[Rfam]
RNA sequence: GCUAUGAUGCCACUGCUAGCUUGAGUAAAAUCUUAGCUCAGGCGGUGUGCGUUACGACGCGCGUGAAUCAUUAUCAGAAAUCU
Numbered sequence: 001g002c003u004a005u006g007a008u009g010c011c012a013c014u015g016c017u018a019g020c021u022u023g024a025g026u027a028a029a030a031u032c033u034u035a036g037c038u039c040a041g042g043c044g045g046u047g048u049g050c051g052u053u054a055c056g057a058c059g060c061g062c063g064u065g066a067a068u069c070a071u072u073a074u075c076a077g078a079a080a081u082c083u
Stems, first nucleotide, its partner, number of pairs: 015046003019043008047062006
Notes: Shown here is an 83-nucleotide RNA from Salmonella enterica, a member of the family "Peptidase-S11 RNA". Rfam's curators put it in the seed alignment. The base pairs follow the family's consensus structure, which is taken from published work.